[Rfam]
RNA sequence: CGUUCGUAGUUUGACUUGCGGGGUGCGAGAACAGUGGUUUAUGGUUUUGGGGGUCAGCGCGGGGGGAUUGGCUUCGGUCAGUACCCUUGCGUCCCCGGAUCCAGCGCGGGGGGGUGUGCAGCGCUUGAAUAAAGUGCUGCGCGCUUUUACGCGUUCCGUCCUAACGGGCGGGGCCCUUCGUCAGCACUCUGUUUGCGCGUGCCUUCACCGGUGCGCGCGAUUACCAUGAGGAAAUAGGUACGUUCAAAGUAGGGUGGCGGUCACUGCUAGCGCUGUAAUAGGCGCGCAGACCCGCCCGUCCCGUUGAACAGGCCAGCAUGGGAUAAUGUGCUACGACUCGGCGUCAGUAGUACGUUGGCUUGCAGCGGAUGCAGAGUAAUGGUUGAUAGGAGUGAGUGCGUGGGCAUCAGGACCAGACGGGGACAGGUGAAAUAGGAUGAUCCGUCUGAGACUAUCGGGAGCGAAAGCGUUUGCCAAGUACACUUUCAUUAAUCAAGAUCGAAAGCCAGGGGAUAGAAGGCGAUUAGACACCACCGUAUUCCUGGCCAUAAACCAU
Number, nucleotide and partner (000 for none) at each position: 001c000002g500003u000004u498005c497006g000007u000008a000009g493010u492011u491012u000013g000014a000015c000016u000017u000018g000019c000020g000021g000022g000023g000024u000025g000026c000027g000028a000029g000030a000031a000032c000033a000034g000035u000036g000037g000038u000039u000040u000041a000042u000043g000044g000045u000046u000047u000048u000049g000050g000051g000052g000053g000054u000055c000056a000057g000058c000059g000060c000061g000062g000063g000064g000065g000066g000067a000068u000069u000070g000071g000072c000073u000074u000075c000076g000077g000078u000079c000080a000081g000082u000083a000084c000085c000086c000087u000088u000089g000090c000091g000092u000093c000094c000095c000096c000097g000098g000099a000100u000101c000102c000103a000104g000105c000106g000107c000108g000109g000110g000111g000112g000113g000114g000115u000116g000117u000118g000119c000120a000121g000122c000123g000124c000125u000126u000127g000128a000129a000130u000131a000132a000133a000134g000135u000136g000137c000138u000139g000140c000141g000142c000143g000144c000145u000146u000147u000148u000149a000150c000151g000152c000153g000154u000155u000156c000157c000158g000159u000160c000161c000162u000163a000164a000165c000166g000167g000168g000169c000170g000171g000172g000173g000174c000175c000176c000177u000178u000179c000180g000181u000182c000183a000184g000185c000186a000187c000188u000189c000190u000191g000192u000193u000194u000195g000196c000197g000198c000199g000200u000201g000202c000203c000204u000205u000206c000207a000208c000209c000210g000211g000212u000213g000214c000215g000216c000217g000218c000219g000220a000221u000222u000223a000224c000225c000226a000227u000228g000229a000230g000231g000232a000233a000234a000235u000236a000237g000238g000239u000240a000241c000242g000243u000244u000245c000246a000247a000248a000249g000250u000251a000252g000253g000254g000255u000256g000257g000258c000259g000260g000261u000262c000263a000264c000265u000266g000267c000268u000269a000270g000271c000272g000273c000274u000275g000276u000277a000278a000279u000280a000281g000282g000283c000284g000285c000286g000287c000288a000289g000290a000291c000292c000293c000294g000295c000296c000297c000298g000299u000300c000301c000302c000303g000304u000305u000306g000307a000308a000309c000310a000311g000312g000313c000314c000315a000316g000317c000318a000319u000320g000321g000322g000323a000324u000325a000326a000327u000328g000329u000330g000331c000332u000333a000334c000335g000336a000337c000338u000339c000340g000341g000342c000343g000344u000345c000346a000347g000348u000349a000350g000351u000352a000353c000354g000355u000356u000357g000358g000359c000360u000361u000362g000363c000364a000365g000366c000367g000368g000369a000370u000371g000372c000373a000374g000375a000376g000377u000378a000379a000380u000381g000382g000383u000384u000385g000386a000387u000388a000389g487390g486391a485392g484393u482394g481395a000396g000397u480398g479399c478400g000401u000402g000403g475404g474405c473406a472407u000408c000409a453410g452411g000412a000413c000414c448415a447416g446417a445418c444419g443420g442421g000422g000423a000424c435425a000426g433427g000428u000429g000430a000431a000432a000433u426434a000435g424436g000437a000438u000439g000440a000441u000442c420443c419444g418445u417446c416447u415448g414449a000450g000451a000452c410453u409454a000455u000456c000457g000458g000459g000460a000461g468462c467463g000464a000465a000466a000467g462468c461469g000470u000471u000472u406473g405474c404475c403476a000477a000478g399479u398480a397481c394482a393483c000484u392485u391486u390487c389488a000489u000490u000491a011492a010493u009494c000495a000496a000497g005498a004499u000500c002501g000502a000503a000504a000505g546506c545507c544508a543509g542510g541511g000512g000513a000514u000515a539516g000517a000518a000519g535520g534521c000522g532523a000524u000525u000526a000527g000528a000529c000530a000531c000532c522533a000534c520535c519536g000537u000538a000539u515540u000541c510542c509543u508544g507545g506546c505547c000548a000549u000550a000551a000552a000553c000554c000555a000556u000
A member of the RNA family "Eukaryotic small subunit ribosomal RNA" from Retortamonas sp. ATCC 50375, 556 nucleotides of a longer RNA. The family is grouped with related families in Rfam's "SSU clan". On this family, see Yusupov et al., Science 2001: "Crystal structure of the ribosome at 5.5 A resolution". Lineage of the source: Eukaryota > Metamonada > Fornicata > Retortamonadidae > Retortamonas. It is one of the family's seed sequences.